[Rfam]
This 88-nucleotide RNA sequence from Oryza sativa belongs to the Rfam family "Small nucleolar RNA Z162". The source organism's lineage runs through Eukaryota, Petrosaviidae, commelinids, Oryzeae and Oryza sativa. It is one of the family's seed sequences.
RNA sequence: UUUGGCACAAUGAGGAGGUAAUUUAGCUAAUGUAUCUCUGAGGUCUGAAGGCCAAUGACUCCUAUGUCCUUUUCAUUCUGAGUGCCUU
Numbered sequence: 001u002u003u004g005g006c007a008c009a010a011u012g013a014g015g016a017g018g019u020a021a022u023u024u025a026g027c028u029a030a031u032g033u034a035u036c037u038c039u040g041a042g043g044u045c046u047g048a049a050g051g052c053c054a055a056u057g058a059c060u061c062c063u064a065u066g067u068c069c070u071u072u073u074c075a076u077u078c079u080g081a082g083u084g085c086c087u088u
Stems, first nucleotide, its partner, number of pairs: 004086005010076005043052003
The literature on the family includes a 2003 paper in Nucleic Acids Res by Chen et al., "The high diversity of snoRNAs in plants: identification and comparative study of 120 snoRNA genes from Oryza sativa".